[Rfam]
RNA sequence: CUAUGAAAAGGAAACAUGGUAAUGUGCACAGAAAUUGAUUUGGGUCUCUAGGCCUGCUCUUUUUGGUGCCUUUCGGAUUUGAUUUGAGGGCAUGGUUCCGCAGCAGAACG
Numbered sequence: 001c002u003a004u005g006a007a008a009a010g011g012a013a014a015c016a017u018g019g020u021a022a023u024g025u026g027c028a029c030a031g032a033a034a035u036u037g038a039u040u041u042g043g044g045u046c047u048c049u050a051g052g053c054c055u056g057c058u059c060u061u062u063u064u065g066g067u068g069c070c071u072u073u074c075g076g077a078u079u080u081g082a083u084u085u086g087a088g089g090g091c092a093u094g095g096u097u098c099c100g101c102a103g104c105a106g107a108a109c110g
Base pairs, nucleotide, nucleotide: 015026016025017024042093044091045090046089052083054081057076058075
The family of this 110-nucleotide sequence from Rhododendron simsii is "Small nucleolar RNA snoR100". The family's RNA type in Rfam is H/ACA-box small nucleolar RNA. Rfam links the family to the GO terms RNA processing and nucleolus. The family's consensus secondary structure was predicted with WAR. Taxonomically the source falls in Rhododendron (Eukaryota, asterids, Ericales, Rhodoreae). On this family, see Marker et al., Curr Biol 2002: "Experimental RNomics: identification of 140 candidates for small non-messenger RNAs in the plant Arabidopsis thaliana".